[Rfam]
RNA sequence: ACAUUUUUAGGUCGUGAUGUGCGCAAAUAUGUUUGUAUACAUUAUUUUAAUCAUAUUGCACAUAUCCCGGCCUAUAGGUGU
Numbered sequence: 001a002c003a004u005u006u007u008u009a010g011g012u013c014g015u016g017a018u019g020u021g022c023g024c025a026a027a028u029a030u031g032u033u034u035g036u037a038u039a040c041a042u043u044a045u046u047u048u049a050a051u052c053a054u055a056u057u058g059c060a061c062a063u064a065u066c067c068c069g070g071c072c073u074a075u076a077g078g079u080g081u
Base pairs, nucleotide, nucleotide: 001081002080003079004078005077006076010072011071013069014068016066017065020062021061023059026057027056028055029054030053031052

The family of this 81-nucleotide RNA from Drosophila grimshawi is "mir-310 microRNA precursor family". The match comes from Rfam's covariance-model search (59 bits). The base pairs follow the family's consensus structure, which was predicted with RNAalifold. The family is grouped with related families in Rfam's "mir-92 microRNA precursor clan".